[Rfam]
RNA: ZMP/ZTP riboswitch aptamer (pfl RNA motif)
Nucleotides: 080
Base pairs, nucleotide, nucleotide: 004050005049006048007047008046009045010044011043012042015039016038017068018067019066020065021064024036025035026034027033059073060072061071
Number, partner (000 for none) and nucleotide at each position: 001000g002000u003000a004050u005049g006048a007047u008046c009045a010044u011043g012042u013000g014000a015039c016038u017068g018067a019066c020065g021064g022000a023000a024036g025035u026034g027033g028000a029000g030000u031000u032000a033027c034026c035025a036024c037000g038016g039015g040000g041000a042012g043011c044010a045009u046008g047007a048006u049005u050004g051000a052000c053000g054000a055000u056000a057000c058000a059073g060072c061071c062000g063000a064021c065020c066019g067018u068017c069000u070000g071061g072060g073059c074000g075000a076000a077000a078000g079000c080000u